Rfam assigns this 295-nucleotide part of an RNA to the family "Eukaryotic large subunit ribosomal RNA". The family is grouped with related families in Rfam's "LSU clan".
RNA sequence: GAGUCUAACGUGAGCGCGAGUCACAGGGAAAAACACUCCCUUGGGGCGCAGCGAAAGCGAUGUGGUCCGAUCCUCUCUCGGGUGAGGGGGGCGCAGGACCGGCCCGUCGGGGGUUGUUACGGCCUCGGCGGAGCAAGAGCGCUCGCGUUGGGACCCGAAAGAUGGUGAACUAGGCCCGAGCGGGACGAAGCCGGGAGAAAUGCUGGUGGAGGUCCUAAGUGGUUCUGACGCGCAAAUCGAUCACGGAACUUGGGCGUAGGGGCGAAAGACUAAUCGAACCAUCUAGUAGCUGGUU
Numbered sequence: 001g002a003g004u005c006u007a008a009c010g011u012g013a014g015c016g017c018g019a020g021u022c023a024c025a026g027g028g029a030a031a032a033a034c035a036c037u038c039c040c041u042u043g044g045g046g047c048g049c050a051g052c053g054a055a056a057g058c059g060a061u062g063u064g065g066u067c068c069g070a071u072c073c074u075c076u077c078u079c080g081g082g083u084g085a086g087g088g089g090g091g092c093g094c095a096g097g098a099c100c101g102g103c104c105c106g107u108c109g110g111g112g113g114u115u116g117u118u119a120c121g122g123c124c125u126c127g128g129c130g131g132a133g134c135a136a137g138a139g140c141g142c143u144c145g146c147g148u149u150g151g152g153a154c155c156c157g158a159a160a161g162a163u164g165g166u167g168a169a170c171u172a173g174g175c176c177c178g179a180g181c182g183g184g185a186c187g188a189a190g191c192c193g194g195g196a197g198a199a200a201u202g203c204u205g206g207u208g209g210a211g212g213u214c215c216u217a218a219g220u221g222g223u224u225c226u227g228a229c230g231c232g233c234a235a236a237u238c239g240a241u242c243a244c245g246g247a248a249c250u251u252g253g254g255c256g257u258a259g260g261g262g263c264g265a266a267a268g269a270c271u272a273a274u275c276g277a278a279c280c281a282u283c284u285a286g287u288a289g290c291u292g293g294u295u
Stems, first nucleotide, its partner, number of pairs: 005151013020047003025041005051058002064100005072091006102134002104131006113120002154293002157290001161283006170259003174255007183215004190207005196201001219244004224240002227238002261271002